RNA sequence: UAUACAGUGAAUGUAGGGUGGGAGUGGCCACUUCCUUAUAGAAGGAGGUGGUGCUUAUAGUGACAACGUAUGAGGCGUUAACGCUAAUGAUUACCUUUGGCUCUUUAAUUGUCUCCAUCAUUGCCAUAGUUAUUUCAAAUGACAAAAAGAAAUAACCCCACCCUCAUGAAGCGCCUAAACUUUGAAGGGUAGAGUUAUGUUCCUUUCUCUAUUGGGCCACUGCUUUCCUUGCAGUUUGCUGUGUAGCAAGAGACAUUGGUUGCCGCCAGUGUCU
Number, nucleotide and partner (000 for none) at each position: 001u245002a244003u243004a242005c241006a000007g239008u238009g237010a000011a235012u219013g218014u215015a164016g163017g162018g161019u160020g159021g158022g157023a000024g000025u000026g000027g000028c051029c050030a049031c000032u047033u046034c045035c044036u043037u000038a000039u000040a000041g000042a000043a036044g035045g034046a033047g032048g000049u030050g029051g028052u000053g000054c000055u000056u000057a000058u000059a000060g000061u000062g125063a000064c123065a122066a121067c000068g119069u000070a000071u000072g000073a000074g000075g000076c089077g088078u000079u000080a000081a000082c000083g000084c000085u000086a000087a000088u077089g076090a000091u000092u000093a000094c000095c000096u000097u000098u000099g000100g116101c000102u000103c000104u000105u000106u000107a000108a000109u000110u000111g000112u000113c000114u000115c000116c100117a000118u000119c068120a000121u066122u065123g064124c000125c062126a000127u000128a000129g000130u000131u000132a000133u000134u000135u000136c000137a000138a000139a000140u000141g000142a000143c000144a000145a000146a000147a000148a000149g000150a000151a000152a000153u000154a000155a000156c000157c022158c021159c020160a019161c018162c017163c016164u015165c000166a000167u000168g000169a000170a000171g000172c000173g000174c000175c000176u000177a000178a000179a000180c000181u000182u000183u000184g000185a000186a000187g000188g000189g000190u000191a000192g000193a000194g000195u000196u000197a000198u000199g000200u000201u000202c000203c000204u000205u000206u000207c000208u000209c000210u000211a000212u000213u000214g000215g014216g000217c000218c013219a012220c234221u233222g232223c231224u000225u000226u000227c000228c000229u000230u000231g223232c222233a221234g220235u011236u000237u009238g008239c007240u000241g005242u004243g003244u002245a001246g000247c000248a000249a000250g000251a274252g273253a272254c271255a270256u269257u268258g267259g266260u265261u000262g000263c000264c000265g260266c259267c258268a257269g256270u255271g254272u253273c252274u251
The family of this 274-nucleotide sequence from Rossellomorea vietnamensis is "BsrG".
The family's consensus secondary structure was predicted with WAR.
The source organism's lineage runs through Bacteria, Bacilli, Caryophanales, Bacillaceae and Rossellomorea.
bsrE, bsrG and bsrH pair through intermolecular interactions with antisense sRNAs. They form type I toxin/antitoxin system that includes an mRNA encoding for a short, toxic peptide (bsrE, bsrG and bsrH) and an antitoxin that is comprised of an antisense RNA. bsrG encodes a 39-amino-acid toxin, and the 180 nucleotide antisense sRNA called SR4 acts as the antitoxin (they overlap by 123 nucleotides). SR4 interaction with the 3'UTR of bsrG RNA promotes bsrG degradation and inhibits its translation. BsrG interferes with cell envelope biosynthesis, causes membrane invaginations and delocalisation of the cell wall synthesis and initiates autolysis. bsrE RNA encodes 30 amino-acid toxin peptide. Its antitoxin gene, SR5 overlaps by 112 nucleotides at the 3' end of bsrE. SR5 also overlaps bsrG from nucleotide 163 to 52 (Rfam overlap check). The antitoxin SR5 promotes bsrE degradation but unlike SR4 it does not directly inhibits toxin mRNA translation.
A reference for the family is Saito et al. (2008), "Novel small RNA-encoding genes in the intergenic regions of Bacillus subtilis", Gene.